This 84-nucleotide RNA sequence from Parashewanella curva belongs to the Rfam family "RpsF leader". A search with the family's covariance model found it, with a score of 40 bits. For this family Rfam cites "Bacterial RNA motif in the 5' UTR of rpsF interacts with an S6:S18 complex" (Fu et al., RNA, 2014). The base pairs follow the family's consensus structure. NCBI's taxonomy places the organism under Bacteria, Pseudomonadati, Pseudomonadota, Alteromonadales, Parashewanella. Gene Ontology terms of the family: negative regulation of translation and protein binding.
Nucleotides: 084
Stems, first nucleotide, its partner, number of pairs: 017076007024058005034047002
Number, partner (000 for none) and nucleotide at each position: 001000u002000c003000a004000g005000u006000c007000c008000a009000a010000a011000u012000a013000a014000u015000c016000c017076g018075u019074u020073c021072c022071u023070u024058g025057c026056c027055u028054c029000a030000a031000a032000c033000u034047g035046g036000u037000u038000u039000g040000a041000c042000u043000g044000a045000u046035c047034c048000c049000a050000a051000c052000a053000a054028g055027a056026g057025g058024c059000u060000a061000a062000u063000u064000a065000a066000c067000c068000g069000u070023a071022a072021g073020g074019a075018g076017c077000a078000a079000u080000a081000a082000a083000u084000g